[Rfam]
RNA: c-di-GMP-I riboswitch aptamer
RNA sequence: CGUUGUUAAAGCCAAACCUGUCGUGAGAUGGGACGGAAAACUGCGGGCCUCUGAGGGGCGAGUGAUACAAACUCAAGAGAUAGCCGGGUUAUCAUA
Numbered sequence: 001c002g003u004u005g006u007u008a009a010a011g012c013c014a015a016a017c018c019u020g021u022c023g024u025g026a027g028a029u030g031g032g033a034c035g036g037a038a039a040a041c042u043g044c045g046g047g048c049c050u051c052u053g054a055g056g057g058g059c060g061a062g063u064g065a066u067a068c069a070a071a072c073u074c075a076a077g078a079g080a081u082a083g084c085c086g087g088g089u090u091a092u093c094a095u096a
Stems, first nucleotide, its partner, number of pairs: 012036002017031002020029003039090004044086003047081001049079004